RNA sequence: GGCUGGCGGUGACAACGAGAGAGAGCACGCCGGUGGCCAUCACGGAUAGCCUGUGGCGGUGUACUUGUGUGCUCCCUCCCGUUGUCACUGUCAU
Numbered sequence: 001g002g003c004u005g006g007c008g009g010u011g012a013c014a015a016c017g018a019g020a021g022a023g024a025g026c027a028c029g030c031c032g033g034u035g036g037c038c039a040u041c042a043c044g045g046a047u048a049g050c051c052u053g054u055g056g057c058g059g060u061g062u063a064c065u066u067g068u069g070u071g072c073u074c075c076c077u078c079c080c081g082u083u084g085u086c087a088c089u090g091u092c093a094u
Stems, first nucleotide, its partner, number of pairs: 010087005016081002020077002023074001025072006032065003
RNA: MIR535 microRNA precursor family
Organism: Dichanthelium oligosanthes